Rfam assigns this 359-nucleotide sequence from Longimicrobium terrae to the family "Bacterial RNase P class A". NCBI's taxonomy places the organism under Bacteria, Gemmatimonadota, Longimicrobiales, Longimicrobiaceae, Longimicrobium. From the family's description: Ribonuclease P (RNase P) is a ubiquitous endoribonuclease, found in archaea, bacteria and eukarya as well as chloroplasts and mitochondria. Its Rfam clan is "RNaseP clan".

[Rfam]
RNA sequence: GGAGGCGAGUGAGGAUCGCGGCGCCAUUCGUGGCGGCGAGGAAAGUCCGAGCUCCACAGGGCAAGGGUGCCGGCUAACGGCCGGGCGUCGUGAGGCGACGGAAAGUGCAACAGAAAACAGACCGCCGAUGGCCUUCGGGCUCAGGCAAGGGCGAAACGGUGCGGUAAGAGCGCACCGCGCGGCUGGCAACAGUCCGUGGCAUGGCAAACCCCACCCGGAGCAAGGUCAAGCAGAGGCAAGGAGCGGCCCGUUCCAUUUGAGCCUCGGGUAGGCUGCUGGAGGCCGGCGGCAACGUCGGUCCUAGAGAAAUGAUCCUCCCCCGGCAACGGGGACAGAACUCGGCUUAUUCGCCUCCACAU
Numbered sequence: 001g002g003a004g005g006c007g008a009g010u011g012a013g014g015a016u017c018g019c020g021g022c023g024c025c026a027u028u029c030g031u032g033g034c035g036g037c038g039a040g041g042a043a044a045g046u047c048c049g050a051g052c053u054c055c056a057c058a059g060g061g062c063a064a065g066g067g068u069g070c071c072g073g074c075u076a077a078c079g080g081c082c083g084g085g086c087g088u089c090g091u092g093a094g095g096c097g098a099c100g101g102a103a104a105g106u107g108c109a110a111c112a113g114a115a116a117a118c119a120g121a122c123c124g125c126c127g128a129u130g131g132c133c134u135u136c137g138g139g140c141u142c143a144g145g146c147a148a149g150g151g152c153g154a155a156a157c158g159g160u161g162c163g164g165u166a167a168g169a170g171c172g173c174a175c176c177g178c179g180c181g182g183c184u185g186g187c188a189a190c191a192g193u194c195c196g197u198g199g200c201a202u203g204g205c206a207a208a209c210c211c212c213a214c215c216c217g218g219a220g221c222a223a224g225g226u227c228a229a230g231c232a233g234a235g236g237c238a239a240g241g242a243g244c245g246g247c248c249c250g251u252u253c254c255a256u257u258u259g260a261g262c263c264u265c266g267g268g269u270a271g272g273c274u275g276c277u278g279g280a281g282g283c284c285g286g287c288g289g290c291a292a293c294g295u296c297g298g299u300c301c302u303a304g305a306g307a308a309a310u311g312a313u314c315c316u317c318c319c320c321c322g323g324c325a326a327c328g329g330g331g332a333c334a335g336a337a338c339u340c341g342g343c344u345u346a347u348u349c350g351c352c353u354c355c356a357c358a359u
Stems, first nucleotide, its partner, number of pairs: 001355010011317007019038002022035005043345003047342005052220004060249002065216005070084005085099001086097004100211002105209002107205002122150002124146003130141004158176006177200001178198005183192003224274004233265005240254005281300008